[Rfam]
RNA sequence: GCAAAUGAUGAUAUUGUCCAUAUAAUUGAGAUGUAGUGGAUCUGAGACCCUGUUUACAGGGAGAACCCCUUGGUGAAACUAUAAUUUCAUAUGAGAAUACUGGACCUUUCUGAUGC
Numbered sequence: 001g002c003a004a005a006u007g008a009u010g011a012u013a014u015u016g017u018c019c020a021u022a023u024a025a026u027u028g029a030g031a032u033g034u035a036g037u038g039g040a041u042c043u044g045a046g047a048c049c050c051u052g053u054u055u056a057c058a059g060g061g062a063g064a065a066c067c068c069c070u071u072g073g074u075g076a077a078a079c080u081a082u083a084a085u086u087u088c089a090u091a092u093g094a095g096a097a098u099a100c101u102g103g104a105c106c107u108u109u110c111u112g113a114u115g116c
Stems, first nucleotide, its partner, number of pairs: 001116003048061005
RNA: Small nucleolar RNA Z278